[Rfam]
RNA sequence: GAAAUUCGGCCGGACACACUCCUCCUCCCAGUGUCAGGCCGAGCGAUCGGCGGCCCUCCUCCUCCCAGCUGCCGAUCAAACAAAGUGCGCCCGCCGGAUCUCCUCCCCCGGCGGGCGCUCUUG
Numbered sequence: 001g002a003a004a005u006u007c008g009g010c011c012g013g014a015c016a017c018a019c020u021c022c023u024c025c026u027c028c029c030a031g032u033g034u035c036a037g038g039c040c041g042a043g044c045g046a047u048c049g050g051c052g053g054c055c056c057u058c059c060u061c062c063u064c065c066c067a068g069c070u071g072c073c074g075a076u077c078a079a080a081c082a083a084a085g086u087g088c089g090c091c092c093g094c095c096g097g098a099u100c101u102c103c104u105c106c107c108c109c110g111g112c113g114g115g116c117g118c119u120c121u122u123g
Base pairs, nucleotide, nucleotide: 007041008040009039011037013035014034015033016032017031045077046076047075048074049073050072051071052070053069054068087118088117089116090115091114092113093112094111095110096109097108
Rfam assigns this 123-nucleotide RNA from Georhizobium profundi to the family "Alphaproteobacterial ar14".
The family's RNA type in Rfam is small RNA.
Pairs were carried over by alignment from the consensus structure.
Rfam links the family to the GO term biological process involved in symbiotic interaction.
Lineage of the source: Bacteria > Pseudomonadati > Alphaproteobacteria > Rhizobiaceae > Georhizobium.
A search with the family's covariance model found it, with a score of 112 bits.